[Rfam]
A member of the RNA family "tRNA" from Paenibacillus nasutitermitis, 74 nucleotides long. Taxonomically the source falls in Paenibacillus (Bacteria, Bacillati, Bacilli, Paenibacillaceae).

RNA sequence: GCGCCCUUAGCUCAGCUGGAUAGAGCGUUUGACUUCGAAUCAAAAGGCCGGGAGUUCGAAUCUCUCAGGGCGCG
Numbered sequence: 001g002c003g004c005c006c007u008u009a010g011c012u013c014a015g016c017u018g019g020a021u022a023g024a025g026c027g028u029u030u031g032a033c034u035u036c037g038a039a040u041c042a043a044a045a046g047g048c049c050g051g052g053a054g055u056u057c058g059a060a061u062c063u064c065u066c067a068g069g070g071c072g073c074g
Stems, first nucleotide, its partner, number of pairs: 001073007010026004028044005050066005